[Rfam]
Nucleotides: 132
Base pairs, nucleotide, nucleotide: 001058003056004055007050010047012045013044014043015042016041017040019037020036021035022034023033069124071122072121073120074119075118076117079114080113082110083109084108086106087105088104089103090102091101
Number, partner (000 for none) and nucleotide at each position: 001058g002000c003056c004055c005000u006000g007050u008000g009000g010047u011000u012045g013044c014043u015042g016041g017040a018000c019037a020036c021035u022034g023033c024000u025000g026000u027000g028000c029000c030000u031000g032000u033023g034022c035021a036020g037019u038000g039000c040017u041016u042015c043014a044013g045012u046000u047010g048000g049000a050007g051000g052000a053000u054000g055004g056003g057000c058001c059000c060000a061000c062000a063000g064000u065000g066000a067000c068000c069124c070000u071122g072121g073120g074119g075118c076117a077000a078000c079114g080113c081000a082110g083109g084108g085000a086106g087105g088104c089103u090102g091101u092000g093000a094000g095000c096000c097000c098000u099000g100000a101091g102090c103089a104088g105087c106086c107000u108084c109083c110082u111000c112000a113080g114079c115000c116000c117076u118075g119074c120073c121072u122071c123000a124069g125000g126000c127000a128000c129000a130000c131000c132000c
Small nucleolar RNA SNORA84: a 132-nucleotide sequence from Pheucticus melanocephalus. A search with the family's covariance model found it, with a score of 90 bits. Pairs were carried over by alignment from the consensus structure, which was predicted with WAR. It is annotated as an H/ACA-box small nucleolar RNA. For this family Rfam cites "Experimental RNomics: identification of 140 candidates for small non-messenger RNAs in the plant Arabidopsis thaliana" (Marker et al., Curr Biol, 2002).